[Rfam]
RNA sequence: GUUACAGACGAACCCUAGUCGGGUUGAAGC
Numbered sequence: 001g002u003u004a005c006a007g008a009c010g011a012a013c014c015c016u017a018g019u020c021g022g023g024u025u026g027a028a029g030c
Stems, first nucleotide, its partner, number of pairs: 011025005
The record is a 30-nucleotide RNA from Halarchaeum sp. CBA1220, which matches "CRISPR RNA direct repeat element" in Rfam. Pairs were carried over by alignment from the consensus structure, which was predicted with WAR. The organism belongs to Halarchaeum, within Archaea. Its family is annotated with defense response in the Gene Ontology. Rfam 15.1 lists 2,265 matches to the family in 51 species. A search with the family's covariance model found it, with a score of 43 bits.